[Rfam]
RNA sequence: UUUGUGAAAACCUUUUGAAUCAAAUAGUAGAGUGAUUCAAAAGGUUCUCGACG
Numbered sequence: 001u002u003u004g005u006g007a008a009a010a011c012c013u014u015u016u017g018a019a020u021c022a023a024a025u026a027g028u029a030g031a032g033u034g035a036u037u038c039a040a041a042a043g044g045u046u047c048u049c050g051a052c053g
Base pairs, nucleotide, nucleotide: 005050006049007048009046010045011044012043013042014041015040016039017038018037019036020035021034022033
RNA: Plastid-ccsA-ndhD-2 3UTR RNA
Organism: Acer yangbiense